[Rfam]
Overview:
Rfam assigns this 151-nucleotide RNA sequence from Cupriavidus plantarum to the family "Manganese Mn2+ riboswitch aptamer (yybP-ykoY)". Rfam describes the family as follows. This RNA was originally discovered in E. coli during a large scale screen and was named SraF. The family was later found to exist upstream of related families of protein genes in many bacteria, including the the yybP and ykoK genes in B. subtilis. The specific functions of these proteins are unknown, but this structured RNA element may be involved in their genetic regulation as a riboswitch.

RNA sequence: CGACGCGUCUUAGGGGAGUAGCUUGCCUCCGUCAGGUUCGCCACGGAGGCGCCGGCGUCAACACACUUGGCCGCACAGGCCAUGGCGCCGGCGGCAGGUUUCCGCAAUGGAAGCCCGUUCUGCGAGACCUUUGACUUUCCGUUCACCAGCC
Number, nucleotide and partner (000 for none) at each position: 001c000002g000003a000004c000005g000006c000007g000008u000009c000010u000011u000012a000013g000014g000015g000016g000017a000018g000019u000020a000021g000022c000023u000024u000025g000026c049027c048028u047029c046030c045031g044032u000033c000034a000035g000036g000037u000038u000039c000040g000041c000042c000043a000044c031045g030046g029047a028048g027049g026050c000051g092052c091053c090054g089055g088056c087057g086058u085059c084060a083061a000062c000063a000064c000065a000066c000067u000068u082069g081070g080071c079072c078073g000074c000075a000076c000077a000078g072079g071080c070081c069082a068083u060084g059085g058086c057087g056088c055089c054090g053091g052092c051093g000094g000095c000096a000097g151098g150099u149100u000101u000102c000103c000104g000105c000106a000107a000108u000109g000110g000111a000112a000113g000114c000115c000116c000117g000118u000119u000120c000121u000122g000123c000124g000125a000126g000127a000128c000129c000130u000131u000132u000133g000134a000135c000136u000137u000138u000139c000140c000141g000142u000143u000144c000145a000146c000147c000148a000149g099150c098151c097